[Rfam]
Nucleotides: 232
Base pairs, nucleotide, nucleotide: 001066002065003064004063005062006061010043011042013040014039017036018035044053045052046051069211070210071209073207074088075087076086077085078084091205092204093203094202095201096200097199098198099197100196106140107139110134114130115129116128117127121231122230123229124228142187143186144185145184146183147182148181149180150179154178155177157175158174159173161171162170163169
Number, partner (000 for none) and nucleotide at each position: 001066g002065u003064c004063a005062c006061g007000a008000a009000c010043c011042c012000a013040c014039c015000g016000u017036u018035a019000a020000u021000c022000g023000c024000u025000a026000a027000u028000c029000g030000c031000g032000g033000u034000a035018u036017a037000a038000c039014g040013g041000g042011g043010g044053c045052u046051u047000g048000a049000a050000a051046a052045a053044g054000c055000u056000c057000a058000u059000a060000a061006c062005g063004u064003g065002a066001c067000c068000a069211g070210c071209c072000u073207a074088a075087g076086u077085a078084c079000u080000c081000g082000a083000a084078g085077u086076a087075c088074u089000c090000c091205g092204u093203u094202u095201u096200u097199u098198g099197a100196g101000c102000u103000a104000u105000c106140a107139c108000a109000c110134c111000c112000u113000u114130a115129g116128a117127u118000g119000c120000g121231u122230c123229g124228c125000u126000a127117g128116u129115c130114u131000u132000u133000u134110g135000c136000u137000c138000u139107g140106u141000g142187g143186u144185u145184a146183a147182u148181a149180g150179u151000u152000a153000a154178a155177c156000a157175g158174u159173c160000g161171u162170a163169a164000a165000c166000g167000g168000g169163u170162u171161a172000g173159g174158a175157c176000a177155g178154u179150g180149c181148u182147a183146u184145u185144a186143g187142c188000a189000a190000g191000a192000c193000a194000a195000a196100c197099u198098c199097a200096a201095a202094a203093a204092a205091c206000a207073u208000u209071g210070g211069c212000g213000u214000u215000c216000g217000c218000g219000c220000a221000a222000g223000c224000g225000u226000g227000u228124g229123c230122g231121a232000a